[Rfam]
RNA sequence: UGCUCCGUGGUUCAAUGGUAGAAUAGCGCACUGUUAAUGCGAUGGUUGCUGGUUCGAGUCCAGCCGGAGCAG
Numbered sequence: 001u002g003c004u005c006c007g008u009g010g011u012u013c014a015a016u017g018g019u020a021g022a023a024u025a026g027c028g029c030a031c032u033g034u035u036a037a038u039g040c041g042a043u044g045g046u047u048g049c050u051g052g053u054u055c056g057a058g059u060c061c062a063g064c065c066g067g068a069g070c071a072g
Stems, first nucleotide, its partner, number of pairs: 001071007010024004027041004048064005